[Rfam]
The record is a 569-nucleotide part of an RNA from Candidatus Calditenuaceae archaeon HR02, which matches "Archaeal large subunit ribosomal RNA" in Rfam.
A search with the family's covariance model found it, with a score of 2574 bits.
Lineage of the source: Archaea > Thermoproteati > Nitrososphaerota > Candidatus Caldarchaeales > Candidatus Calditenuaceae.
Gene Ontology terms of the family: structural constituent of ribosome and ribosome.
RNA sequence: GGGGGUACGCCAGCCGGUGGAUGCCUCGGCUUGGGCGCCGAAGAAGGACGUGGCAAGCUGCGAUAAGCCCCGGGUAGCCGCAGGCGGGCGUUGAUCCGGGGAUCUCCUAAUGGGAUCUCCUGGGGUGGCUUCGGCCACCUCGUUCCCGGGCCUUCAGUCCGGGAUCGGGAACCCCCCGAACGGAAGCAUCCAAGUAGGGGGAGGAAAAGAAAUCAAACGAGAUUCCCUGAGUAGGGGCGACCGAAAGGGGAGCAGCCCAAACCGAACCCCCCGAGGUUAACUCGGGGGGAGUGUGGGGUUAUGGGGCCGGAGGCCCGCCCUGAAUGCUGAGCCGAACUCCCCUGGAAUGGGGGGCCAGAGAGGGUGAUAGCCCCGUAGGCGAAGGCUGGAGGGGCGAUGCUCCGGUCCCCGAGUACCGCACCUCGGAUAUGGUGCGGGAAGUUGGGGGCCACUGGCCUCCAAGGCUAAAUACGUCCCAAGACCGAUAGUGGACCAGUAGCGUGAGCCAAAGGUGAAAAGUACCCCGAGAGGGGGGUGAAAAGCGCCUGAAACCGGCUGGUAACAGACGA
Numbered sequence: 001g002g003g004g005g006u007a008c009g010c011c012a013g014c015c016g017g018u019g020g021a022u023g024c025c026u027c028g029g030c031u032u033g034g035g036c037g038c039c040g041a042a043g044a045a046g047g048a049c050g051u052g053g054c055a056a057g058c059u060g061c062g063a064u065a066a067g068c069c070c071c072g073g074g075u076a077g078c079c080g081c082a083g084g085c086g087g088g089c090g091u092u093g094a095u096c097c098g099g100g101g102a103u104c105u106c107c108u109a110a111u112g113g114g115a116u117c118u119c120c121u122g123g124g125g126u127g128g129c130u131u132c133g134g135c136c137a138c139c140u141c142g143u144u145c146c147c148g149g150g151c152c153u154u155c156a157g158u159c160c161g162g163g164a165u166c167g168g169g170a171a172c173c174c175c176c177c178g179a180a181c182g183g184a185a186g187c188a189u190c191c192a193a194g195u196a197g198g199g200g201g202a203g204g205a206a207a208a209g210a211a212a213u214c215a216a217a218c219g220a221g222a223u224u225c226c227c228u229g230a231g232u233a234g235g236g237g238c239g240a241c242c243g244a245a246a247g248g249g250g251a252g253c254a255g256c257c258c259a260a261a262c263c264g265a266a267c268c269c270c271c272c273g274a275g276g277u278u279a280a281c282u283c284g285g286g287g288g289g290a291g292u293g294u295g296g297g298g299u300u301a302u303g304g305g306g307c308c309g310g311a312g313g314c315c316c317g318c319c320c321u322g323a324a325u326g327c328u329g330a331g332c333c334g335a336a337c338u339c340c341c342c343u344g345g346a347a348u349g350g351g352g353g354g355c356c357a358g359a360g361a362g363g364g365u366g367a368u369a370g371c372c373c374c375g376u377a378g379g380c381g382a383a384g385g386c387u388g389g390a391g392g393g394g395c396g397a398u399g400c401u402c403c404g405g406u407c408c409c410c411g412a413g414u415a416c417c418g419c420a421c422c423u424c425g426g427a428u429a430u431g432g433u434g435c436g437g438g439a440a441g442u443u444g445g446g447g448g449c450c451a452c453u454g455g456c457c458u459c460c461a462a463g464g465c466u467a468a469a470u471a472c473g474u475c476c477c478a479a480g481a482c483c484g485a486u487a488g489u490g491g492a493c494c495a496g497u498a499g500c501g502u503g504a505g506c507c508a509a510a511g512g513u514g515a516a517a518a519g520u521a522c523c524c525c526g527a528g529a530g531g532g533g534g535g536u537g538a539a540a541a542g543c544g545c546c547u548g549a550a551a552c553c554g555g556c557u558g559g560u561a562a563c564a565g566a567c568g569a
Base pairs, nucleotide, nucleotide: 009560010559011558012557013556014555015554016553017552023546024512025511028483029482030480031479032478033477034476035475036473037472045108046107047106048105049062050061051060068101069100070099071098072097073096077089078088079087112121113120114119144164145163146162147161148160149159150158151157172203173201174200175199176198177197183190184189213220214219224251225250226249227248228247234242235241254466255465256464257463262296263295264294272284273283274282275281308404309403310402311401316396317395318394319393331380332379333378337353339352340351341350342349356360362374363373364372416437417436418435419434420433421432422431444460445459446458447457448456499506500505